[Rfam]
RNA sequence: AUAUUAGAUUUAUUAUAUAUUAAUAUAAAGUAGAAUAAAGUCCUAAGGGACGACUUCGUCACGCUAAAUCGUAUACGAUCCUUUUCGAGACCUCGCAGAAAAUUUCGUAAGAAAUAUUAACAGCAUUUUAAAAUGGGGUUACUUUGUUUAUGAUU
Numbered sequence: 001a002u003a004u005u006a007g008a009u010u011u012a013u014u015a016u017a018u019a020u021u022a023a024u025a026u027a028a029a030g031u032a033g034a035a036u037a038a039a040g041u042c043c044u045a046a047g048g049g050a051c052g053a054c055u056u057c058g059u060c061a062c063g064c065u066a067a068a069u070c071g072u073a074u075a076c077g078a079u080c081c082u083u084u085u086c087g088a089g090a091c092c093u094c095g096c097a098g099a100a101a102a103u104u105u106c107g108u109a110a111g112a113a114a115u116a117u118u119a120a121c122a123g124c125a126u127u128u129u130a131a132a133a134u135g136g137g138g139u140u141a142c143u144u145u146g147u148u149u150a151u152g153a154u155u
Base pairs, nucleotide, nucleotide: 009068010067011066012065013028014027015026016025017024018023033057034056035055040051041050042049043048083101084100085099086098103114104113105112106111118141119140120139121138
The family of this 155-nucleotide RNA sequence is "OTKONC RNA". The base pairs follow the family's consensus structure, which is taken from published work. It is one of the family's seed sequences.